[Rfam]
RNA: ASpks TB sRNA
RNA sequence: CUUCACCGACCCCAGCCACAGCGGCCGGUCCGCCGGGCGCCCCUGUCCGUACGUGGCCAGCAGCGCGUCCGCCUC
Numbered sequence: 001c002u003u004c005a006c007c008g009a010c011c012c013c014a015g016c017c018a019c020a021g022c023g024g025c026c027g028g029u030c031c032g033c034c035g036g037g038c039g040c041c042c043c044u045g046u047c048c049g050u051a052c053g054u055g056g057c058c059a060g061c062a063g064c065g066c067g068u069c070c071g072c073c074u075c
Stems, first nucleotide, its partner, number of pairs: 015025003031071002038065002043060003047056003
Dot-bracket structure: ..............(((.....))).....((.....((...(((.(((....))).)))...))....))....